[Rfam]
malK-I RNA: a 187-nucleotide sequence. By type it is a cis-regulatory element. It is one of the family's seed sequences. Pairs were carried over by alignment from the consensus structure, which is taken from published work.

RNA sequence: ACAGGGGAGGUAUGUCUACUCCACGCGCAAGCGAUAGGCCAGUCUCCCUAAAAAGGAGGAAUACAAAAAUCCGCCGGACUCGCGGUGCGGCAGUGUGGAGACCUGUCGCAAUGUGGUGUCGCCAUCCAUGGGCGACCACGAGAUGCAUGGCGCGGAUGCCCCUGCAUCGGAGUCAGAAUGUAUGGCA
Numbered sequence: 001a002c003a004g005g006g007g008a009g010g011u012a013u014g015u016c017u018a019c020u021c022c023a024c025g026c027g028c029a030a031g032c033g034a035u036a037g038g039c040c041a042g043u044c045u046c047c048c049u050a051a052a053a054a055g056g057a058g059g060a061a062u063a064c065a066a067a068a069a070u071c072c073g074c075c076g077g078a079c080u081c082g083c084g085g086u087g088c089g090g091c092a093g094u095g096u097g098g099a100g101a102c103c104u105g106u107c108g109c110a111a112u113g114u115g116g117u118g119u120c121g122c123c124a125u126c127c128a129u130g131g132g133c134g135a136c137c138a139c140g141a142g143a144u145g146c147a148u149g150g151c152g153c154g155g156a157u158g159c160c161c162c163u164g165c166a167u168c169g170g171a172g173u174c175a176g177a178a179u180g181u182a183u184g185g186c187a
Stems, first nucleotide, its partner, number of pairs: 006047006014039005071085004075176001077174005086110008095102002113139005120134002142168006149161001152159002